[Rfam]
RNA sequence: CAACGUCACCGGGGGUGUCCUUGCCUGCAAGGACUGAGAUUAAACUCCAGGACCUGACGCGGUUUAUACCGCCGUAGGGAGAGUGGCCGCAGCCAUGA
Numbered sequence: 001c002a003a004c005g006u007c008a009c010c011g012g013g014g015g016u017g018u019c020c021u022u023g024c025c026u027g028c029a030a031g032g033a034c035u036g037a038g039a040u041u042a043a044a045c046u047c048c049a050g051g052a053c054c055u056g057a058c059g060c061g062g063u064u065u066a067u068a069c070c071g072c073c074g075u076a077g078g079g080a081g082a083g084u085g086g087c088c089g090c091a092g093c094c095a096u097g098a
Stems, first nucleotide, its partner, number of pairs: 006086004011048004016042001017034005053078004059072004
A member of the RNA family "TPP riboswitch aptamer (THI element)" from a Deinococcales bacterium, 98 nucleotides long. The match comes from Rfam's covariance-model search (58 bits). NCBI's taxonomy places the organism under Bacteria, Thermotogati, Deinococcota, Deinococci, Deinococcales. Pairs were carried over by alignment from the consensus structure, which is taken from published work.